[Rfam]
RNA sequence: GGUUUUAACCCAGUAUCUCAAGGUACUACGGGUGUCCGACCUACCAUCAGUGGUUGUGUCGAAAACCUCAAUUUUUGGACCACCUUCCUGGGGUAUCCGGGAGGGUAAC
Numbered sequence: 001g002g003u004u005u006u007a008a009c010c011c012a013g014u015a016u017c018u019c020a021a022g023g024u025a026c027u028a029c030g031g032g033u034g035u036c037c038g039a040c041c042u043a044c045c046a047u048c049a050g051u052g053g054u055u056g057u058g059u060c061g062a063a064a065a066c067c068u069c070a071a072u073u074u075u076u077g078g079a080c081c082a083c084c085u086u087c088c089u090g091g092g093g094u095a096u097c098c099g100g101g102a103g104g105g106u107a108a109c
Stems, first nucleotide, its partner, number of pairs: 008035001009032002013029002016025001018023001037061004041056001043054003085107001086105004092098002
RNA: SL2 RNA